[Rfam]
RNA sequence: GCACGUUGAGGCAGAGGAGUUCCUCGGUCCGCAGGUCGAUUCCGGUCAGGCAACGGGGGCCGGAG
Numbered sequence: 001g002c003a004c005g006u007u008g009a010g011g012c013a014g015a016g017g018a019g020u021u022c023c024u025c026g027g028u029c030c031g032c033a034g035g036u037c038g039a040u041u042c043c044g045g046u047c048a049g050g051c052a053a054c055g056g057g058g059g060c061c062g063g064a065g
Base pairs, nucleotide, nucleotide: 004055005054006053007052008051010029011028012027014025015024016023017022040065041064042063043062044061045060046058047057
RNA: Glutamine-II riboswitch aptamer